[Rfam]
RNA sequence: UAGAGGUUGCACCUAUGUGCUGGAAGCACAUAUCGGAAUGGUGCAACCGACCUGCCGCCGAACGAAUGUGAGGGGGCGAUACUAAAG
Numbered sequence: 001u002a003g004a005g006g007u008u009g010c011a012c013c014u015a016u017g018u019g020c021u022g023g024a025a026g027c028a029c030a031u032a033u034c035g036g037a038a039u040g041g042u043g044c045a046a047c048c049g050a051c052c053u054g055c056c057g058c059c060g061a062a063c064g065a066a067u068g069u070g071a072g073g074g075g076g077c078g079a080u081a082c083u084a085a086a087g
Stems, first nucleotide, its partner, number of pairs: 008045006015031006054077003058073002062069002

Notes: GA-cis RNA: an 87-nucleotide RNA sequence from Coprococcus sp. CAG:782. Rfam classes the family as a small RNA.